[Rfam]
Nucleotides: 089
Stems, first nucleotide, its partner, number of pairs: 001089005007083001009081004015075004019070001021068009031058007
Number, partner (000 for none) and nucleotide at each position: 001089g002088g003087g004086c005085a006000u007083u008000c009081c010080c011079u012078c013000u014000g015075a016074g017073c018072g019070a020000g021068c022067a023066g024065a025064g026063a027062a028061g029060u030000a031058u032057u033056a034055u035054u036053u037052g038000c039000g040000u041000g042000a043000a044000u045000c046000u047000g048000a049000u050000a051000u052037c053036a054035a055034a056033u057032a058031a059000g060029a061028c062027u063026u064025u065024u066023u067022u068021g069000g070019u071000u072018c073017g074016c075015u076000a077000u078012g079011a080010g081009g082000u083007a084000u085005u086004g087003u088002u089001c
Source information: The family of this 89-nucleotide RNA sequence from Drosophila virilis is "mir-974 microRNA precursor family". Rfam links the family to the GO terms RISC complex and miRNA-mediated post-transcriptional gene silencing. The sequence is in the family's curated seed alignment.